A member of the RNA family "Eukaryotic large subunit ribosomal RNA" from Dimargaris cristalligena, 423 nucleotides of a longer RNA. Taxonomically the source falls in Dimargaris (Eukaryota, Fungi, Kickxellomycotina, Dimargaritaceae).

RNA sequence: UUAACCUCAGGCAGGUAGGACUACCCGCCGAAUUUAAGCAUAUUAAUAAGCGGAGGAAAAGAAAAUAACUAUGAUUGCACCAGUAACGGCGAGUGAAGAUGCAAAAGUCCAGAUUUAAAAUCCUUUUCCUCUGGGAAAGUGAGUUGUAGUCUGAAGAUUGGGGACCUGGUCCCCUGGGGGAGCGCAAAGUGGCCUGGAACGGCCCGGCUUAGAGGGUGAUACCCCCGUAGCGCCGACCCGGGAGUCCUAAGGGUCUCCGGAUCCAAGAGUCAGGUUGUUUGGGAAUGCAGCCUAAAAGGGUGGUAAACACCACCUAAGGCUAAAUACUGGGGCGAGACCGAUAGCAAACAAGUACCGUGAGGGAAAACUGAAAAGAAGUCUGAAGAGACAGUGAAACAGUACGUGAAAUCGUUAGUGAGGAAA
Numbered sequence: 001u002u003a004a005c006c007u008c009a010g011g012c013a014g015g016u017a018g019g020a021c022u023a024c025c026c027g028c029c030g031a032a033u034u035u036a037a038g039c040a041u042a043u044u045a046a047u048a049a050g051c052g053g054a055g056g057a058a059a060a061g062a063a064a065a066u067a068a069c070u071a072u073g074a075u076u077g078c079a080c081c082a083g084u085a086a087c088g089g090c091g092a093g094u095g096a097a098g099a100u101g102c103a104a105a106a107g108u109c110c111a112g113a114u115u116u117a118a119a120a121u122c123c124u125u126u127u128c129c130u131c132u133g134g135g136a137a138a139g140u141g142a143g144u145u146g147u148a149g150u151c152u153g154a155a156g157a158u159u160g161g162g163g164a165c166c167u168g169g170u171c172c173c174c175u176g177g178g179g180g181a182g183c184g185c186a187a188a189g190u191g192g193c194c195u196g197g198a199a200c201g202g203c204c205c206g207g208c209u210u211a212g213a214g215g216g217u218g219a220u221a222c223c224c225c226c227g228u229a230g231c232g233c234c235g236a237c238c239c240g241g242g243a244g245u246c247c248u249a250a251g252g253g254u255c256u257c258c259g260g261a262u263c264c265a266a267g268a269g270u271c272a273g274g275u276u277g278u279u280u281g282g283g284a285a286u287g288c289a290g291c292c293u294a295a296a297a298g299g300g301u302g303g304u305a306a307a308c309a310c311c312a313c314c315u316a317a318g319g320c321u322a323a324a325u326a327c328u329g330g331g332g333c334g335a336g337a338c339c340g341a342u343a344g345c346a347a348a349c350a351a352g353u354a355c356c357g358u359g360a361g362g363g364a365a366a367a368c369u370g371a372a373a374a375g376a377a378g379u380c381u382g383a384a385g386a387g388a389c390a391g392u393g394a395a396a397c398a399g400u401a402c403g404u405g406a407a408a409u410c411g412u413u414a415g416u417g418a419g420g421a422a423a
Base pairs, nucleotide, nucleotide: 024055025053026052027051028050035042036041065072066071076103077102078101079100086094087093106321107320108319109318112151113150114149115148118145119144121142122141123139124138125137126136127135156263157262158260159259160258161257163255164254165253166252168246169245170244172242173241174240176237179234180233182231189205191204192203193202194201208212215225216224272293273292274291275290276289277288278287298315299314300313301312302311355362356361378389379388380387381386
A search with the family's covariance model found it, with a score of 2522 bits.